Nucleotides: 082
Base pairs, nucleotide, nucleotide: 043068044067045066046065047064
Number, partner (000 for none) and nucleotide at each position: 001000g002000u003000g004000a005000u006000u007000u008000u009000u010000u011000c012000a013000u014000a015000g016000u017000a018000u019000u020000a021000g022000a023000u024000u025000u026000a027000a028000g029000g030000u031000u032000a033000a034000c035000a036000a037000a038000a039000g040000a041000u042000u043068g044067g045066u046065a047064g048000a049000a050000u051000g052000c053000c054000g055000u056000g057000a058000g059000g060000c061000a062000a063000g064047c065046u066045a067044c068043c069000u070000u071000u072000c073000g074000u075000c076000u077000u078000u079000u080000a081000u082000a
Background:
The record is an 82-nucleotide RNA from Paludibacter propionicigenes, which matches "Bacteroidetes FopS (family of paralogous sRNAs)" in Rfam. On this family, see Ruttiger et al., Nat Commun 2025: "The global RNA-binding protein RbpB is a regulator of polysaccharide utilization in Bacteroides thetaiotaomicron". Rfam classes the family as a small RNA. Rfam links the family to the GO term sRNA-mediated gene silencing. Pairs were carried over by alignment from the consensus structure, which is taken from published work. The RNA-binding protein RbpB and BTncRNA_FopS sRNA are involved in the post-transcription regulation of polysaccharide utilisation loci (PUL). FopS sRNAs function as post-transcriptional repressors by binding to the vicinity of the start codon of the first mRNA of target PUL polycistrons, typically corresponding to the cognate SusC homolog, impeding translation of the respective glycan transporter.